[Rfam]
RNA sequence: AUUACCGGACUCACAAAACCCAGCCGCAGGUUCGGUUGGUGCGUCUGUCCGGGUCGGGGCGUGUAAGCCGCCCAACCUCAUCCCGCUCGCUUGCCGAGCAGGGAGUGCUAGCGCACGGCUGAGGGAAUUACAAAAGCCUCGGGCUUCCGAAAACCGCAGGUUUUCGGCUUUCGCAAAUCUCCGAUUUGCGUCAACACCGCGCCCGAGGUUGUUUACGUCAUCACAAUAUCGACCGCCUGCAGUCGGAUCG
Numbered sequence: 001a002u003u004a005c006c007g008g009a010c011u012c013a014c015a016a017a018a019c020c021c022a023g024c025c026g027c028a029g030g031u032u033c034g035g036u037u038g039g040u041g042c043g044u045c046u047g048u049c050c051g052g053g054u055c056g057g058g059g060c061g062u063g064u065a066a067g068c069c070g071c072c073c074a075a076c077c078u079c080a081u082c083c084c085g086c087u088c089g090c091u092u093g094c095c096g097a098g099c100a101g102g103g104a105g106u107g108c109u110a111g112c113g114c115a116c117g118g119c120u121g122a123g124g125g126a127a128u129u130a131c132a133a134a135a136g137c138c139u140c141g142g143g144c145u146u147c148c149g150a151a152a153a154c155c156g157c158a159g160g161u162u163u164u165c166g167g168c169u170u171u172c173g174c175a176a177a178u179c180u181c182c183g184a185u186u187u188g189c190g191u192c193a194a195c196a197c198c199g200c201g202c203c204c205g206a207g208g209u210u211g212u213u214u215a216c217g218u219c220a221u222c223a224c225a226a227u228a229u230c231g232a233c234c235g236c237c238u239g240c241a242g243u244c245g246g247a248u249c250g
Stems, first nucleotide, its partner, number of pairs: 005052006013044002020039006053076002057073005062067001084250002087246003091242004096236001098234001102219002105216003109121004135210010

Rfam assigns this 250-nucleotide RNA from Halorhabdus utahensis to the family "Sense overlapping transcript RNA 2652 (sot)". Rfam's curators write: It is associated with IS1341-type transposase (tnpB) genes, at the 3'-end in H. salinarum NRC-1. The tetraloop structural motif may be functional. The family's consensus secondary structure was predicted with RNAfold. Rfam classes the family as a small RNA. A reference for the family is Gomes-Filho et al. (2015), "Sense overlapping transcripts in IS1341-type transposase genes are functional non-coding RNAs in archaea", RNA Biol.